[Rfam]
RNA sequence: AAAAUUAAAAGGCAAACUUUCCGAAAGGAAAGGACGCAAAGCCACGGGCCUAAGGACAUUGUCUAUGGUAGCCGGGCCGCCUUA
Numbered sequence: 001a002a003a004a005u006u007a008a009a010a011g012g013c014a015a016a017c018u019u020u021c022c023g024a025a026a027g028g029a030a031a032g033g034a035c036g037c038a039a040a041g042c043c044a045c046g047g048g049c050c051u052a053a054g055g056a057c058a059u060u061g062u063c064u065a066u067g068g069u070a071g072c073c074g075g076g077c078c079g080c081c082u083u084a
Base pairs, nucleotide, nucleotide: 012037013036017032018031019030020029021028022027041077042076043075045074046073047072048069049068050067055063056062057061
Dot-bracket structure: ...........((...((((((....))))))...))...(((.((((((....(((...)))...)))..)))))).......

Record summary
This 84-nucleotide RNA from Desulforamulus reducens belongs to the Rfam family "c-di-GMP-I riboswitch aptamer". The family's consensus secondary structure is taken from published work. Rfam's curators put it in the seed alignment.